[Rfam]
RNA sequence: ACGUUUGGGUGAUCGCUGCGGCCCUUUGGCCGUAGAGGAAAGUCCAUGCUCGCACAGCCUGCGACGGCUGUAGUGUUCGUGCCUGGCGAAGUCAUAAGUCAGGGUAGCCUGUAAAGGUUAACGGCAGGGAAAAGACCUAAGUCCGCCGGAUAUGGUCUGACUACCUUGAAAGUGCCACAGUGACGGAGUCCCCGAAGAAAUGAGGGGAGUGGAACGAGGUAAACCCCACGAGCGAGAAACCCAAAUUAUGGUAGGGGCAUCUUCUCCAAGGAAAUGAACGAGAGAGAAGGACAGGGCAACCUGUAGAUAGAUGGUCGCCACCGGAGUACGAGGCGGGAGCCGCUGGCAGUACAAAGGUACAGAACAUGGCUUAUAGAA
Dot-bracket structure: ...(((((((((((.((((((........))))))....[[[.[[[[[(((((((((((......)))))).....(((((((((((..........))))))(((((((....)))))).)((.(((.....((((...(((.....)))..))))......))).....(((((............(((((..(....)..))))).........)))..))))))))))))))...(((...........)))...(((((((.................)))))))(((((....)))))........))))))).((...((((...................))))...)).......]]]]]]]].).)))